RNA sequence: AUGCCUUAAACUUAUGCAGAAGGAAAGUAACAAUUUGGUGUGACACCCAAAACCUCACUGUUAAUGUGAGAUGAAUCAUUUAGCAGGUAAAGGUUGCCCCUAAGGUGACUGGCCUAUUUUGCAGGAUACCUGGGAGUCAUGAUCUGCAAG
Numbered sequence: 001a002u003g004c005c006u007u008a009a010a011c012u013u014a015u016g017c018a019g020a021a022g023g024a025a026a027g028u029a030a031c032a033a034u035u036u037g038g039u040g041u042g043a044c045a046c047c048c049a050a051a052a053c054c055u056c057a058c059u060g061u062u063a064a065u066g067u068g069a070g071a072u073g074a075a076u077c078a079u080u081u082a083g084c085a086g087g088u089a090a091a092g093g094u095u096g097c098c099c100c101u102a103a104g105g106u107g108a109c110u111g112g113c114c115u116a117u118u119u120u121g122c123a124g125g126a127u128a129c130c131u132g133g134g135a136g137u138c139a140u141g142a143u144c145u146g147c148a149a150g
Stems, first nucleotide, its partner, number of pairs: 004023004034051005054070005084150001087147002091145006100134002103131005109125002112122002

Shown here is a 150-nucleotide RNA from Mustela putorius, a member of the family "U12 minor spliceosomal RNA".
On this family, see Tarn and Steitz, Trends Biochem Sci 1997: "Pre-mRNA splicing: the discovery of a new spliceosome doubles the challenge".
The family's RNA type in Rfam is spliceosomal small nuclear RNA.
The organism belongs to Mustela putorius, within Eukaryota.